[Rfam]
RNA sequence: AUGCCUUAAACUUAUGAGUUAACAAAAUAAUGAUUCGGGGUGAUGUCCAAAUGCUCACCGCUAAUGUGAGAUGAAUUUUUGUGUGGGCAAAGGUUGCCCUUCAGGUGACCUGCCUACUUUGCGGGAUGCCUCCGAGUGGCAAUCUGCUCA
Numbered sequence: 001a002u003g004c005c006u007u008a009a010a011c012u013u014a015u016g017a018g019u020u021a022a023c024a025a026a027a028u029a030a031u032g033a034u035u036c037g038g039g040g041u042g043a044u045g046u047c048c049a050a051a052u053g054c055u056c057a058c059c060g061c062u063a064a065u066g067u068g069a070g071a072u073g074a075a076u077u078u079u080u081g082u083g084u085g086g087g088c089a090a091a092g093g094u095u096g097c098c099c100u101u102c103a104g105g106u107g108a109c110c111u112g113c114c115u116a117c118u119u120u121g122c123g124g125g126a127u128g129c130c131u132c133c134g135a136g137u138g139g140c141a142a143u144c145u146g147c148u149c150a
Base pairs, nucleotide, nucleotide: 006021008019033052034051035050037048038047039046054070055069056068057067058066084150085149086148087147088146091145092144093143094142095141096140097139100134103131104130105129106128107127109125110124111123112122113121